[Rfam]
RNA sequence: UGUUCAGACUAGGGGUGUCCAAUAAACGUUGGGCUGAGAGAGAAGCGCGUUAAAGCUUCUUAACCCUCAGGACCUGAUCUGGUUCAUACCAGCGUGGGGAAGUUAGAAUCUACUAAG
Numbered sequence: 001u002g003u004u005c006a007g008a009c010u011a012g013g014g015g016u017g018u019c020c021a022a023u024a025a026a027c028g029u030u031g032g033g034c035u036g037a038g039a040g041a042g043a044a045g046c047g048c049g050u051u052a053a054a055g056c057u058u059c060u061u062a063a064c065c066c067u068c069a070g071g072a073c074c075u076g077a078u079c080u081g082g083u084u085c086a087u088a089c090c091a092g093c094g095u096g097g098g099g100a101a102g103u104u105a106g107a108a109u110c111u112a113c114u115a116a117g
Base pairs, nucleotide, nucleotide: 007104008103009102010101011067012066013065014064017034018033019032020031021030041060042059043058044057045056073098074097075096076095079092080091081090082089
TPP riboswitch aptamer (THI element): a 117-nucleotide RNA from Peribacillus muralis.
From the family's description: Vitamin B(1) in its active form thiamin pyrophosphate (TPP) is an essential coenzyme that is synthesised by coupling of pyrimidine and thiazole moieties in bacteria.
Rfam links the family to the GO term thiamine pyrophosphate binding.
The family's consensus secondary structure is taken from published work.